[Rfam]
Annotation
The record is a 234-nucleotide sequence from Candidatus Epulonipiscium fishelsonii, which matches "Group II catalytic intron D1-D4-5" in Rfam. Pairs were carried over by alignment from the consensus structure. Rfam's curators write: Group II introns are found in rRNA, tRNA and mRNA of organelles in fungi, plants and protists, and also in mRNA in bacteria. The organism belongs to Candidatus Epulonipiscium, within Bacteria. Rfam 15.1 lists 720 matches to the family in 418 species.
RNA sequence: UAGAACUGUUAUUUCGAUUGGUAGAAUGAUAGGGUAACGCCUUGAAAUGCCAGCCCAAAUACGACUAGCGUUUUGCUAAGUAAAUGGCAGAGGGUUAGAAGCUCGUUAUAAAGCCUUAGAAAGCAUCCUAGCAGAGAGGGUAAUGACCGUAACAAACGGUGGUGUGACACAUUACUGAGCUGUGGAAAACCGAACCAGAGGUGGUCGUGUGCUAUAUGGCGAAGGGUCUAUAAA
Numbered sequence: 001u002a003g004a005a006c007u008g009u010u011a012u013u014u015c016g017a018u019u020g021g022u023a024g025a026a027u028g029a030u031a032g033g034g035u036a037a038c039g040c041c042u043u044g045a046a047a048u049g050c051c052a053g054c055c056c057a058a059a060u061a062c063g064a065c066u067a068g069c070g071u072u073u074u075g076c077u078a079a080g081u082a083a084a085u086g087g088c089a090g091a092g093g094g095u096u097a098g099a100a101g102c103u104c105g106u107u108a109u110a111a112a113g114c115c116u117u118a119g120a121a122a123g124c125a126u127c128c129u130a131g132c133a134g135a136g137a138g139g140g141u142a143a144u145g146a147c148c149g150u151a152a153c154a155a156a157c158g159g160u161g162g163u164g165u166g167a168c169a170c171a172u173u174a175c176u177g178a179g180c181u182g183u184g185g186a187a188a189a190c191c192g193a194a195c196c197a198g199a200g201g202u203g204g205u206c207g208u209g210u211g212c213u214a215u216a217u218g219g220c221g222a223a224g225g226g227u228c229u230a231u232a233a234a
Base pairs, nucleotide, nucleotide: 018053019052020051021050022049023048031043032042033041034040054226055225056224061106062105063104064103065098066097067096068095069094071092072091073090074089075088076087077086078085113220114219115218122213123212124211125210126209127185128184133181134180189208191207192206194205195204196203197202